[Rfam]
Overview: Rfam assigns this 71-nucleotide RNA sequence from Musa balbisiana to the family "Plastid-clpP 5UTR RNA". Taxonomically the source falls in Musa (Eukaryota, Viridiplantae, Embryophyta, Tracheophyta). The family's RNA type in Rfam is cis-regulatory element.

RNA sequence: AAUUAUGUUAGUAAAGCCACAAAGAGAAGCAGAUCUAUUCUAUACCCGAUAAGUACCAAUACGCAAUGGAG
Numbered sequence: 001a002a003u004u005a006u007g008u009u010a011g012u013a014a015a016g017c018c019a020c021a022a023a024g025a026g027a028a029g030c031a032g033a034u035c036u037a038u039u040c041u042a043u044a045c046c047c048g049a050u051a052a053g054u055a056c057c058a059a060u061a062c063g064c065a066a067u068g069g070a071g
Stems, first nucleotide, its partner, number of pairs: 003024002006021003046069002053062003

The literature on the family includes a 2023 paper in Plant Commun by Richter et al., "Retrograde signaling in plants: A critical review focusing on the GUN pathway and beyond". Rfam's curators write: Plastid clpP is a non-coding RNA (ncRNA) recognised in plastids. It was found in the prime untranslated region (5UTR) of a protease complex subunit (clpP) in plastids, suggesting a posible cis-regulatory function. The base pairs follow the family's consensus structure, which was predicted with LocARNA. The family has 343 seed sequences and 2,105 matches in Rfam 15.1.